[Rfam]
RNA: pemK RNA
RNA sequence: AUAAUGAUACUUCUGUACGCAGCCGCCGGAGUACCCGGCAAGGGGUGAGACGCCCAUGG
Numbered sequence: 001a002u003a004a005u006g007a008u009a010c011u012u013c014u015g016u017a018c019g020c021a022g023c024c025g026c027c028g029g030a031g032u033a034c035c036c037g038g039c040a041a042g043g044g045g046u047g048a049g050a051c052g053c054c055c056a057u058g059g
Base pairs, nucleotide, nucleotide: 012056013022014021015020025039027037028036029035042055043054044053